[Rfam]
RNA sequence: GGGCCGGCUAUAGCCCAGCGGUUACUUCGGUGUUUCACAUGUGUGUCGUAUCUCGCCCCGCAAGGGGUUCGAUCCCGCGGGCACCCCUGGCUCAUUU
Numbered sequence: 001g002g003g004c005c006g007g008c009u010a011u012a013g014c015c016c017a018g019c020g021g022u023u024a025c026u027u028c029g030g031u032g033u034u035u036c037a038c039a040u041g042u043g044u045g046u047c048g049u050a051u052c053u054c055g056c057c058c059c060g061c062a063a064g065g066g067g068u069u070c071g072a073u074c075c076c077g078c079g080g081g082c083a084c085c086c087c088u089g090g091c092u093c094a095u096u097u
Stems, first nucleotide, its partner, number of pairs: 002092006013082004018078004027072004

The family of this 97-nucleotide RNA sequence from Phaetusa simplex is "Vault RNA". By type it is a non-coding RNA gene. Taxonomically the source falls in Phaetusa (Eukaryota, Sarcopterygii, Coelurosauria, Neoaves). A search with the family's covariance model found it, with a score of 58 bits. For this family Rfam cites "Evolution of Vault RNAs" (Stadler et al., Mol Biol Evol, 2009).